[Rfam]
This 87-nucleotide RNA from Dehalococcoides mccartyi belongs to the Rfam family "pan motif".
By type it is a cis-regulatory element.
The family's consensus secondary structure is taken from published work.
It scores 51 bits against the family's covariance model.

RNA sequence: UGCCACUGACCAUAAAUGGCAGUGAGCCUUUAAAACUUUAAAUUAAAUAUAUCCCCGCUUGGAUCGCAAAACGGCCGAGACGGUAAA
Numbered sequence: 001u002g003c004c005a006c007u008g009a010c011c012a013u014a015a016a017u018g019g020c021a022g023u024g025a026g027c028c029u030u031u032a033a034a035a036c037u038u039u040a041a042a043u044u045a046a047a048u049a050u051a052u053c054c055c056c057g058c059u060u061g062g063a064u065c066g067c068a069a070a071a072c073g074g075c076c077g078a079g080a081c082g083g084u085a086a087a
Stems, first nucleotide, its partner, number of pairs: 002027002004024005010019002055083003058079005064074003